[Rfam]
RNA sequence: GUGGGCUAUGGAGACAUGUGUCCCACCACCCUGGGUGGGAAGAUUGUGGGGACUCUCUGCGCCAUUGCGGGGGUUUUGACCAUUGCCCUCCCCGUGCCCGUCAUCGUCUCGAAC
Numbered sequence: 001g002u003g004g005g006c007u008a009u010g011g012a013g014a015c016a017u018g019u020g021u022c023c024c025a026c027c028a029c030c031c032u033g034g035g036u037g038g039g040a041a042g043a044u045u046g047u048g049g050g051g052a053c054u055c056u057c058u059g060c061g062c063c064a065u066u067g068c069g070g071g072g073g074u075u076u077u078g079a080c081c082a083u084u085g086c087c088c089u090c091c092c093c094g095u096g097c098c099c100g101u102c103a104u105c106g107u108c109u110c111g112a113a114c
Stems, first nucleotide, its partner, number of pairs: 001114002005110001008107004013102003018097004037077004049063002
The record is a 114-nucleotide RNA from Neodrepanis coruscans, which matches "Potassium channel RNA editing signal" in Rfam. Rfam's curators write: This family represents a group of sequences related to the human potassium channel Kv1.1 hairpin element which directs the efficient modification of an adenosine to inosine by an adenosine deaminase acting on RNA (ADAR). The ADAR modification causes an isoleucine/valine recoding event which lies in the ion-conducting pore of the potassium channel. It is thought that this editing event targets the process of fast inactivation and allows a more rapid recovery from inactivation at negative potentials. The base pairs follow the family's consensus structure, which is taken from published work. For this family Rfam cites "Control of human potassium channel inactivation by editing of a small mRNA hairpin" (Bhalla et al., Nat Struct Mol Biol, 2004). Rfam links the family to the GO term adenosine to inosine editing. The family's RNA type in Rfam is cis-regulatory element. The source organism's lineage runs through Eukaryota, Eumetazoa, Tetrapoda, Archosauria and Neodrepanis.